The record is a 326-nucleotide part of an RNA, which matches "Bacterial large subunit ribosomal RNA" in Rfam.
[Rfam]
RNA sequence: UGAGCGAAUCAUCUUGAAGGAACUCGGCAAAAUAACCCCGUAACUUCGGGAGAAGGGGUACGACUUUUAUGGUCGUGGCACAGAAUAGAAGAGUACGACUGUUUACUUAAAACACAGGUCUUUGCUAAUAGGAAACUAGAUGUAUAAAGACUGAUACCUGCUCAGUGCUGGUAAGUCAAGAGAGGUACUAAUACGGUACUGAUUGAACCUCCAGUAAACAGCGGUUGUAACUAUAACGAUCCUCAGGUAGCGAAAUACCUUGGCCACUAAUUAUGGUCGUGCAUGAAUGGUUUAACGAUACUCUUACUGUCUCCAAGAUGAGCUCA
Numbered sequence: 001u002g003a004g005c006g007a008a009u010c011a012u013c014u015u016g017a018a019g020g021a022a023c024u025c026g027g028c029a030a031a032a033u034a035a036c037c038c039c040g041u042a043a044c045u046u047c048g049g050g051a052g053a054a055g056g057g058g059u060a061c062g063a064c065u066u067u068u069a070u071g072g073u074c075g076u077g078g079c080a081c082a083g084a085a086u087a088g089a090a091g092a093g094u095a096c097g098a099c100u101g102u103u104u105a106c107u108u109a110a111a112a113c114a115c116a117g118g119u120c121u122u123u124g125c126u127a128a129u130a131g132g133a134a135a136c137u138a139g140a141u142g143u144a145u146a147a148a149g150a151c152u153g154a155u156a157c158c159u160g161c162u163c164a165g166u167g168c169u170g171g172u173a174a175g176u177c178a179a180g181a182g183a184g185g186u187a188c189u190a191a192u193a194c195g196g197u198a199c200u201g202a203u204u205g206a207a208c209c210u211c212c213a214g215u216a217a218a219c220a221g222c223g224g225u226u227g228u229a230a231c232u233a234u235a236a237c238g239a240u241c242c243u244c245a246g247g248u249a250g251c252g253a254a255a256u257a258c259c260u261u262g263g264c265c266a267c268u269a270a271u272u273a274u275g276g277u278c279g280u281g282c283a284u285g286a287a288u289g290g291u292u293u294a295a296c297g298a299u300a301c302u303c304u305u306a307c308u309g310u311c312u313c314c315a316a317g318a319u320g321a322g323c324u325c326a
Base pairs, nucleotide, nucleotide: 001326002325003324004323009321010320011319012318013317014316015315016314018312019311020310035059036058037057038056039055044049060076061075062074063073064072065071077081089305090304091303092302093301094300095299096297097296100114101113102112117152118151119150120149121148122147123146124145125142129138130137131136156291157290158289160222161221162220165219166218167215168214169213170212171211174210175209180204181203184200185199186198187197188196189195223241224240225239226238227237228236242246262278263277264276265275266274
It scores 1779 bits against the family's covariance model. Its family is annotated with ribosome and structural constituent of ribosome in the Gene Ontology.